Rfam assigns this 181-nucleotide RNA sequence from Thermopolyspora flexuosa to the family "c-di-AMP riboswitch aptamer (ydaO/yuaA leader)". A reference for the family is Barrick et al. (2004), "New RNA motifs suggest an expanded scope for riboswitches in bacterial genetic control", Proc Natl Acad Sci U S A. The source organism's lineage runs through Bacteria, Actinomycetota, Actinomycetes, Streptosporangiales and Thermopolyspora. It scores 68 bits against the family's covariance model.
[Rfam]
RNA sequence: GGCCAUCCGACGCCGAAUCCCACGGGCGCCCAGCGCCCCGGGAGCCGGGGACCCAGUCGCGCGGGCGGCGCAGUGCAGGCCGUACCCGCGAGGGGUGAAUCCAGCGGCGCGUGGCGCGCUGGUAGGGCACUCCUAGCCCGAACCCGUCAGCUAACCCGGUAGGCGAGAUAGGAGAGGAGAA
Numbered sequence: 001g002g003c004c005a006u007c008c009g010a011c012g013c014c015g016a017a018u019c020c021c022a023c024g025g026g027c028g029c030c031c032a033g034c035g036c037c038c039c040g041g042g043a044g045c046c047g048g049g050g051a052c053c054c055a056g057u058c059g060c061g062c063g064g065g066c067g068g069c070g071c072a073g074u075g076c077a078g079g080c081c082g083u084a085c086c087c088g089c090g091a092g093g094g095g096u097g098a099a100u101c102c103a104g105c106g107g108c109g110c111g112u113g114g115c116g117c118g119c120u121g122g123u124a125g126g127g128c129a130c131u132c133c134u135a136g137c138c139c140g141a142a143c144c145c146g147u148c149a150g151c152u153a154a155c156c157c158g159g160u161a162g163g164c165g166a167g168a169u170a171g172g173a174g175a176g177g178a179g180a181a
Stems, first nucleotide, its partner, number of pairs: 011165004018043003044160006054092001093145003101122006125139004